Record summary:
Rfam assigns this 74-nucleotide RNA from Medicago truncatula to the family "MIR5272 microRNA precursor family". A search with the family's covariance model found it, with a score of 82 bits. NCBI's taxonomy places the organism under Eukaryota, Spermatophyta, Pentapetalae, fabids, Medicago. Rfam 15.1 lists 271 matches to the family in 4 species.
[Rfam]
RNA sequence: UUGAAUGUGAAUUGAUUUAUAUUUGGAUACACCCAUUUAAAAGUGAUUCUUAUGUAUUAAUGAUGUUUGGAUAG
Numbered sequence: 001u002u003g004a005a006u007g008u009g010a011a012u013u014g015a016u017u018u019a020u021a022u023u024u025g026g027a028u029a030c031a032c033c034c035a036u037u038u039a040a041a042a043g044u045g046a047u048u049c050u051u052a053u054g055u056a057u058u059a060a061u062g063a064u065g066u067u068u069g070g071a072u073a074g
Stems, first nucleotide, its partner, number of pairs: 011061006018054001021053002025049004030045003